[Rfam]
RNA sequence: GGGGAAACUGAUACCUGGGCAGGCCUGAGCAGUGGUCUGUUCAUCACUAGUUAUCCCCAGAGCAUCCCCGCUUUCUGAUGACCGCGGCGAAUUGAGAGAAAUCGCCACGGACAGAUACGGAGCGGACAUUU
Numbered sequence: 001g002g003g004g005a006a007a008c009u010g011a012u013a014c015c016u017g018g019g020c021a022g023g024c025c026u027g028a029g030c031a032g033u034g035g036u037c038u039g040u041u042c043a044u045c046a047c048u049a050g051u052u053a054u055c056c057c058c059a060g061a062g063c064a065u066c067c068c069c070g071c072u073u074u075c076u077g078a079u080g081a082c083c084g085c086g087g088c089g090a091a092u093u094g095a096g097a098g099a100a101a102u103c104g105c106c107a108c109g110g111a112c113a114g115a116u117a118c119g120g121a122g123c124g125g126a127c128a129u130u131u
Stems, first nucleotide, its partner, number of pairs: 002057004007052001016043003022037004068125007082110003087105004

This 131-nucleotide RNA sequence from Nothobranchius furzeri belongs to the Rfam family "Small Cajal body specific RNA 8". A reference for the family is Huttenhofer et al. (2001), "RNomics: an experimental approach that identifies 201 candidates for novel, small, non-messenger RNAs in mouse", EMBO J. scaRNAs are a specific class of small nuclear RNAs which localise to the Cajal bodies and guide the modification of RNA polymerase II transcribed spliceosomal RNAs U1, U2, U4, U5 and U12. U92 belong to the H/ACA box class of guide RNAs as it has the predicted hairpin-hinge-hairpin-tail structure, conserved H/ACA-box motifs and is found associated with GAR1. Rfam 15.1 lists 955 matches to the family in 741 species.